RNA sequence: UUAGCAGAUGACGAGAAUCGAGACAAGGUGUCUGCAGCGUGCUCGAUCCAAGUCGGGGAGCGCGAUAGCAUGAUGACUCCGUAUAGAGGAAUCUCUGAUGCAAG
Numbered sequence: 001u002u003a004g005c006a007g008a009u010g011a012c013g014a015g016a017a018u019c020g021a022g023a024c025a026a027g028g029u030g031u032c033u034g035c036a037g038c039g040u041g042c043u044c045g046a047u048c049c050a051a052g053u054c055g056g057g058g059a060g061c062g063c064g065a066u067a068g069c070a071u072g073a074u075g076a077c078u079c080c081g082u083a084u085a086g087a088g089g090a091a092u093c094u095c096u097g098a099u100g101c102a103a104g
Stems, first nucleotide, its partner, number of pairs: 002103001004101003

Small nucleolar RNA R44/J54/Z268 family: a 104-nucleotide RNA. The family has 29 seed sequences and 1,168 matches in Rfam 15.1. It is one of the family's seed sequences. Rfam classes the family as a C/D-box small nucleolar RNA. The family's consensus secondary structure was predicted with PFOLD.